[Rfam]
RNA sequence: UUGAUCGCGGGAGAUGGCAUUCCUCCCCGCAUGACCCAACCGCCGCAAGGCUAAUGAUGCCUACCAACGA
Numbered sequence: 001u002u003g004a005u006c007g008c009g010g011g012a013g014a015u016g017g018c019a020u021u022c023c024u025c026c027c028c029g030c031a032u033g034a035c036c037c038a039a040c041c042g043c044c045g046c047a048a049g050g051c052u053a054a055u056g057a058u059g060c061c062u063a064c065c066a067a068c069g070a
Base pairs, nucleotide, nucleotide: 010026011025012024013023016061017060018059019058020057021056042051043050044049
Rfam assigns this 70-nucleotide RNA sequence from Fulvimonas soli to the family "Fluoride riboswitch aptamer (crcB RNA motif)". The literature on the family includes a 2012 paper in Science by Baker et al., "Widespread genetic switches and toxicity resistance proteins for fluoride". It scores 49 bits against the family's covariance model.